RNA sequence: AUAAAAACGAUAAGGGUGACCGCAAGGUCACCCAUUUUAUUUGUAUUGUUUAACAUUAUUUGGUUUGGCCGCCGACAAGUUGAACAAGCAACACUGGUGUUACGUAUAGCUGGCUGUUAUCAGGAUUCCUUACUAUCACGACUAACAGUUCUUGUAACCGACGCCCGAGCAUUCGCUCGGGCUUCUUCUU
Numbered sequence: 001a002u003a004a005a006a007a008c009g010a011u012a013a014g015g016g017u018g019a020c021c022g023c024a025a026g027g028u029c030a031c032c033c034a035u036u037u038u039a040u041u042u043g044u045a046u047u048g049u050u051u052a053a054c055a056u057u058a059u060u061u062g063g064u065u066u067g068g069c070c071g072c073c074g075a076c077a078a079g080u081u082g083a084a085c086a087a088g089c090a091a092c093a094c095u096g097g098u099g100u101u102a103c104g105u106a107u108a109g110c111u112g113g114c115u116g117u118u119a120u121c122a123g124g125a126u127u128c129c130u131u132a133c134u135a136u137c138a139c140g141a142c143u144a145a146c147a148g149u150u151c152u153u154g155u156a157a158c159c160g161a162c163g164c165c166c167g168a169g170c171a172u173u174c175g176c177u178c179g180g181g182c183u184u185c186u187u188c189u190u
Base pairs, nucleotide, nucleotide: 014033015032016031017030018029019028020027021026041091042090043089047086048085049084050083051082052081053080054079060075061074062073063072064071099158100157101156102155103154104153112150113149114148115147116146117145118144119143163182164181165180166179167178168177169176170175
Notes: MicX Vibrio cholerae sRNA: a 190-nucleotide sequence from Vibrio maritimus. It is annotated as a small RNA. A reference for the family is Davis and Waldor (2007), "RNase E-dependent processing stabilizes MicX, a Vibrio cholerae sRNA", Mol Microbiol. NCBI's taxonomy places the organism under Bacteria, Gammaproteobacteria, Vibrionales, Vibrionaceae, Vibrio.